[Rfam]
RNA sequence: CCGUCCCGCCCCGUGGACGCCCCUGACCGUACGGCGCGCUCCGGGCUACCCUGACGGCGUGCGUCUUCCGUGGGAAGGUCCAGGGGAGACGCAAAGCCGACAGCCGUCGCACUCCAGGGAGCAUCUUCCAUG
Numbered sequence: 001c002c003g004u005c006c007c008g009c010c011c012c013g014u015g016g017a018c019g020c021c022c023c024u025g026a027c028c029g030u031a032c033g034g035c036g037c038g039c040u041c042c043g044g045g046c047u048a049c050c051c052u053g054a055c056g057g058c059g060u061g062c063g064u065c066u067u068c069c070g071u072g073g074g075a076a077g078g079u080c081c082a083g084g085g086g087a088g089a090c091g092c093a094a095a096g097c098c099g100a101c102a103g104c105c106g107u108c109g110c111a112c113u114c115c116a117g118g119g120a121g122c123a124u125c126u127u128c129c130a131u132g
Stems, first nucleotide, its partner, number of pairs: 060093004065088004096110002099108003
The family of this 132-nucleotide sequence from Streptomyces sp. Ru72 is "Streptomyces-metH RNA".
Pairs were carried over by alignment from the consensus structure, which is taken from published work.
Lineage of the source: Bacteria > Actinomycetota > Actinomycetes > Kitasatosporales > Streptomyces.